[Rfam]
The record is a 57-nucleotide RNA sequence from Chlorocebus sabaeus, which matches "mir-1234 microRNA precursor family" in Rfam. Pairs were carried over by alignment from the consensus structure, which was predicted with RNAalifold.
RNA sequence: UGGGGUGGGGCAGGGAUGGCUUGGGCCUGCCCAGUCGGCCUGACCACGCACCCCACA
Numbered sequence: 001u002g003g004g005g006u007g008g009g010g011c012a013g014g015g016a017u018g019g020c021u022u023g024g025g026c027c028u029g030c031c032c033a034g035u036c037g038g039c040c041u042g043a044c045c046a047c048g049c050a051c052c053c054c055a056c057a
Stems, first nucleotide, its partner, number of pairs: 001055007009047001011042004017037005023032003